[Rfam]
Overview
This 166-nucleotide RNA sequence from Rhodococcus sp. ABRD24 belongs to the Rfam family "c-di-AMP riboswitch aptamer (ydaO/yuaA leader)". This family represents a conserved RNA structure found upstream of the ydaO and yuaA genes in Bacillus subtilis and related genes in other bacteria. The match comes from Rfam's covariance-model search (72 bits). On this family, see Barrick et al., Proc Natl Acad Sci U S A 2004: "New RNA motifs suggest an expanded scope for riboswitches in bacterial genetic control". Its family is annotated with regulation of gene expression and cyclic-di-AMP binding in the Gene Ontology.
RNA sequence: UCGCUGGGACCGCCUAAUCGAAGCCUCUCGAGAGGUGACGUGCCGGGAACCCAAGUUCUUCUGGGGUGAAUCCCACCGAGUGUGCACUGCGCGCUUCGGAGGGUAGGGCUGAUCUUCCCAGCCCGAACCCGUCAGCUAACUCGGUCGGCGGAUGAACGGAAGAAAC
Numbered sequence: 001u002c003g004c005u006g007g008g009a010c011c012g013c014c015u016a017a018u019c020g021a022a023g024c025c026u027c028u029c030g031a032g033a034g035g036u037g038a039c040g041u042g043c044c045g046g047g048a049a050c051c052c053a054a055g056u057u058c059u060u061c062u063g064g065g066g067u068g069a070a071u072c073c074c075a076c077c078g079a080g081u082g083u084g085c086a087c088u089g090c091g092c093g094c095u096u097c098g099g100a101g102g103g104u105a106g107g108g109c110u111g112a113u114c115u116u117c118c119c120a121g122c123c124c125g126a127a128c129c130c131g132u133c134a135g136c137u138a139a140c141u142c143g144g145u146c147g148g149c150g151g152a153u154g155a156a157c158g159g160a161a162g163a164a165a166c
Base pairs, nucleotide, nucleotide: 011150012149013148014147019040020039042145043144044143045142046141047140052063053062064130065129066128072103073102074101106124107123108122109121